[Rfam]
RNA: Glycine riboswitch aptamer
Organism: Cereibacter changlensis
RNA sequence: CGCGUCAGUUCGGGAGAAUCCGGGUCGGGAAACCGUCUCGGUGCCGAAGGAGCAACCGCCCCGGUAAACUCUCAGGCGCAAGGGACCGUUCUGACACA
Numbered sequence: 001c002g003c004g005u006c007a008g009u010u011c012g013g014g015a016g017a018a019u020c021c022g023g024g025u026c027g028g029g030a031a032a033c034c035g036u037c038u039c040g041g042u043g044c045c046g047a048a049g050g051a052g053c054a055a056c057c058g059c060c061c062c063g064g065u066a067a068a069c070u071c072u073c074a075g076g077c078g079c080a081a082g083g084g085a086c087c088g089u090u091c092u093g094a095c096a097c098a
Base pairs, nucleotide, nucleotide: 006093007092008091011088012087013086020041021040022039023038043077044076045075046073047072050071051070052069056064057063